Description:
mir-1 microRNA precursor family: a 78-nucleotide RNA from Triplophysa tibetana. The match comes from Rfam's covariance-model search (48 bits). For this family Rfam cites "An extensive class of small RNAs in Caenorhabditis elegans" (Lee and Ambros, Science, 2001). The family's consensus secondary structure was predicted with RNAalifold.
RNA sequence: AAAAAUGCCGCCUACUUCAUUAUCAACAAUAACACAGACACGGGAGUUAUUGUUGAUAAUGAAGUAGGCGGCAUUUUU
Number, nucleotide and partner (000 for none) at each position: 001a000002a000003a000004a000005a000006u000007g072008c071009c070010g069011c068012c067013u066014a065015c064016u063017u062018c061019a060020u059021u058022a057023u056024c055025a054026a000027c052028a051029a050030u049031a048032a000033c000034a000035c000036a000037g000038a000039c000040a000041c000042g000043g000044g000045a000046g000047u000048u031049a030050u029051u028052g027053u000054u025055g024056a023057u022058a021059a020060u019061g018062a017063a016064g015065u014066a013067g012068g011069c010070g009071g008072c007073a000074u000075u000076u000077u000078u000